Notes: A member of the RNA family "Phenylalanine leader peptide" from Corallincola holothuriorum, 127 nucleotides long.
[Rfam]
RNA sequence: GAAGAUCCAAACGCUGUUUUUCUUUCUUUUUGCCUUUACCACCGGUUCACCGGGGGGCGAUUUCGUCGUGUAAAGACACAAAGAAAGACGAAUUGAUAAGCCUCCCCAUUGUGGGAGGUUUUUUUUU
Dot-bracket structure: ...............((((.(((((((((.((.(.((((..((..........))((((....))))..)))).).)).))))))))).))))....(((((((((......)))))))))......
Description: The family's consensus secondary structure was predicted with CMfinder. Gene Ontology term of the family: cellular amino acid metabolic process. Rfam classes the family as a cis-regulatory leader.